[Rfam]
RNA sequence: CGCCCCACGGACGUCGUGCCAGAGGGGCGUUUACACAGAACCGUACCCAGUGUGAAGUCUGUAAAUGCACUAUCUGGUACGACAGUCAGUCGGGC
Numbered sequence: 001c002g003c004c005c006c007a008c009g010g011a012c013g014u015c016g017u018g019c020c021a022g023a024g025g026g027g028c029g030u031u032u033a034c035a036c037a038g039a040a041c042c043g044u045a046c047c048c049a050g051u052g053u054g055a056a057g058u059c060u061g062u063a064a065a066u067g068c069a070c071u072a073u074c075u076g077g078u079a080c081g082a083c084a085g086u087c088a089g090u091c092g093g094g095c
Stems, first nucleotide, its partner, number of pairs: 008089001010087002015081009025070001027068009
Dot-bracket structure: .......(.((...(((((((((.(.(((((((((........................))))))))).)..)))))))))....)).)......

Shown here is a 95-nucleotide RNA sequence from Callosobruchus maculatus, a member of the family "mir-277 microRNA precursor family". For this family Rfam cites "MicroRNAs of Bombyx mori identified by Solexa sequencing" (Liu et al., BMC Genomics, 2010). A search with the family's covariance model found it, with a score of 60 bits.